[Rfam]
About this RNA: The record is a 68-nucleotide RNA sequence from Onychostoma macrolepis, which matches "miR-430 microRNA precursor family" in Rfam. The literature on the family includes a 2005 paper in Science by Giraldez et al., "MicroRNAs regulate brain morphogenesis in zebrafish". Lineage of the source: Eukaryota > Metazoa > Vertebrata > Otophysi > Onychostoma. A search with the family's covariance model found it, with a score of 50 bits. Rfam 15.1 lists 24,817 matches to the family in 105 species. The family's consensus secondary structure was predicted with RNAalifold.
RNA sequence: AAGAUUACUUCAAAUGGGAGCAUUGAUCGGUACUAUUUUCAUAAGUGCUUCUCUUUGGAGUAAUUUUA
Numbered sequence: 001a002a003g004a005u006u007a008c009u010u011c012a013a014a015u016g017g018g019a020g021c022a023u024u025g026a027u028c029g030g031u032a033c034u035a036u037u038u039u040c041a042u043a044a045g046u047g048c049u050u051c052u053c054u055u056u057g058g059a060g061u062a063a064u065u066u067u068a
Stems, first nucleotide, its partner, number of pairs: 004064008014055001016053003019049006026042002